[Rfam]
RNA sequence: CCAAGUAAAUCGUAAAAUCACUGAAAGGUGAUGACACAAAGCUAUGGAUCUAAAACCGUUAAGCGGUCAUGAUUGCCAGGCCGCCUAA
Numbered sequence: 001c002c003a004a005g006u007a008a009a010u011c012g013u014a015a016a017a018u019c020a021c022u023g024a025a026a027g028g029u030g031a032u033g034a035c036a037c038a039a040a041g042c043u044a045u046g047g048a049u050c051u052a053a054a055a056c057c058g059u060u061a062a063g064c065g066g067u068c069a070u071g072a073u074u075g076c077c078a079g080g081c082c083g084c085c086u087a088a
Stems, first nucleotide, its partner, number of pairs: 012037002017032006041081003045078003048073003055067004